[Rfam]
RNA sequence: UAGAAUAAUGUAGAUAAGGGAAGUCGGCAAAUUAGAUCCGUAACUUCGGGAUAAGGAUUGGCUCUGAGGGCUAGGUGUGAUUUUAUCAGCAAUGAUAGGAUCGUCAGUUCUUGGUUAUCAAAUGAAUGAGAUGAUUGAUGGAGUUGUUAAUUUCCCCCUGGGGAGGUGGACGGCCCUAUUAAUUAUUUCUGCAAUUUGUCAACCUUGAAUUUGAAGCACAAUGAAUAGCUGACUCAGAACUGGUACGGACAAGGGGAAUCCGACUGUUUAAUUAAAACAAAGCAUUGUGAUAGUGUGAAAGAUAUAUUGACACAAUGUGAAUUCUGCCCAGUGCUCUGAAUGUCAAAGUGAAGGAAUUCAACCAAGCGCGGGUAAACGGCGGGAGUAACUAUGACUCUCUUAAGGUAGCCAAAUGCCUCGUCAUCUAAUUAGUGACGCGCAUGAAUGGAUUAAUGAGAUUCCCACUGUCCCUAUCUACUAUCUAGCGAAACCACAGCCAAGGGAAUGGGCUUGGAAA
Number, nucleotide and partner (000 for none) at each position: 001u484002a483003g482004a481005a000006u000007a000008a000009u000010g478011u477012a476013g475014a474015u473016a472017a000018g470019g469020g468021a000022a000023g000024u000025c000026g000027g000028c000029a000030a000031a000032u000033u000034a000035g059036a058037u057038c056039c055040g000041u000042a000043a000044c049045u000046u000047c000048g000049g044050g000051a000052u000053a000054a000055g039056g038057a037058u036059u035060g241061g240062c000063u238064c237065u236066g235067a234068g233069g230070g229071c228072u227073a226074g000075g219076u218077g217078u216079g000080a000081u215082u214083u213084u000085a211086u141087c140088a139089g000090c137091a136092a135093u134094g000095a000096u000097a000098g000099g000100a132101u131102c130103g000104u129105c128106a127107g000108u125109u124110c000111u122112u121113g000114g119115u000116u000117a000118u000119c114120a000121a112122a111123u000124g109125a108126a000127u106128g105129a104130g102131a101132u100133g000134a093135u092136u091137g090138a000139u088140g087141g086142a000143g000144u000145u000146g000147u000148u000149a000150a000151u000152u000153u000154c000155c000156c000157c000158c000159u000160g000161g000162g000163g000164a000165g000166g000167u000168g000169g000170a000171c000172g000173g000174c000175c000176c000177u000178a000179u000180u000181a000182a000183u000184u000185a000186u000187u000188u000189c000190u000191g000192c000193a000194a000195u000196u000197u000198g000199u000200c000201a000202a000203c000204c000205u000206u000207g000208a000209a000210u000211u085212u000213g083214a082215a081216g078217c077218a076219c075220a000221a000222u000223g000224a000225a000226u073227a072228g071229c070230u069231g000232a000233c068234u067235c066236a065237g064238a063239a000240c061241u060242g246243g000244u000245a000246c242247g000248g000249a000250c000251a000252a000253g000254g463255g462256g461257a460258a459259u458260c457261c455262g454263a000264c000265u279266g278267u277268u000269u000270a000271a000272u000273u000274a000275a000276a000277a267278c266279a265280a000281a000282g318283c317284a316285u315286u314287g313288u312289g311290a000291u000292a000293g305294u304295g303296u302297g000298a000299a000300a000301g000302a296303u295304a294305u293306a000307u000308u000309g000310a000311c289312a288313c287314a286315a285316u284317g283318u282319g000320a000321a450322u449323u448324c447325u000326g380327c379328c378329c000330a000331g377332u376333g373334c372335u371336c370337u000338g369339a000340a000341u368342g367343u366344c000345a000346a000347a000348g000349u360350g359351a358352a357353g000354g000355a000356a000357u352358u351359c350360a349361a000362c000363c000364a000365a000366g343367c342368g341369c338370g336371g335372g334373u333374a000375a000376a332377c331378g328379g327380c326381g399382g398383g397384a396385g395386u394387a000388a000389c000390u000391a000392u000393g000394a386395c385396u384397c383398u382399c381400u404401u000402a000403a000404g400405g000406u000407a000408g000409c000410c000411a000412a000413a000414u000415g000416c000417c000418u000419c000420g436421u435422c434423a433424u432425c000426u000427a000428a000429u000430u000431a000432g424433u423434g422435a421436c420437g000438c000439g000440c000441a000442u000443g000444a000445a000446u000447g324448g323449a322450u321451u000452a000453a000454u262455g261456a000457g260458a259459u258460u257461c256462c255463c254464a000465c000466u000467g000468u020469c019470c018471c000472u016473a015474u014475c013476u012477a011478c010479u000480a000481u004482c003483u002484a001485g000486c000487g000488a000489a000490a000491c000492c000493a000494c000495a000496g000497c514498c513499a512500a511501g510502g000503g000504a000505a000506u000507g000508g000509g000510c501511u500512u499513g498514g497515a000516a000517a000
Rfam assigns this 517-nucleotide part of an RNA from Blastocystis hominis to the family "Eukaryotic large subunit ribosomal RNA". It is one of the family's seed sequences.